[Rfam]
The family of this 191-nucleotide RNA from Streptomyces xanthii is "c-di-AMP riboswitch aptamer (ydaO/yuaA leader)". The match comes from Rfam's covariance-model search (67 bits).
RNA sequence: GAGUUCCGUACGCCGAGAGGCAGGGAACCGGGGACCCACCGACCUUGGGGUGAAUCGGUCAACAGUCCGGCGGCGCCGGAUGGUUGGCCGUAGGGCAGCCUUCCGUACGACGUGCACCACCGCGCACCGAAGCGACGGUGUACGAGCCCGAACCCGACAGCUAACCCGGUAGGCGGAUUACGGAAGGAGUC
Numbered sequence: 001g002a003g004u005u006c007c008g009u010a011c012g013c014c015g016a017g018a019g020g021c022a023g024g025g026a027a028c029c030g031g032g033g034a035c036c037c038a039c040c041g042a043c044c045u046u047g048g049g050g051u052g053a054a055u056c057g058g059u060c061a062a063c064a065g066u067c068c069g070g071c072g073g074c075g076c077c078g079g080a081u082g083g084u085u086g087g088c089c090g091u092a093g094g095g096c097a098g099c100c101u102u103c104c105g106u107a108c109g110a111c112g113u114g115c116a117c118c119a120c121c122g123c124g125c126a127c128c129g130a131a132g133c134g135a136c137g138g139u140g141u142a143c144g145a146g147c148c149c150g151a152a153c154c155c156g157a158c159a160g161c162u163a164a165c166c167c168g169g170u171a172g173g174c175g176g177a178u179u180a181c182g183g184a185a186g187g188a189g190u191c
Base pairs, nucleotide, nucleotide: 004026005025006024027170028169029168030167031166032165037047038046048155049154050153056090057089058088059087060086061085062084063083093149094148095147096146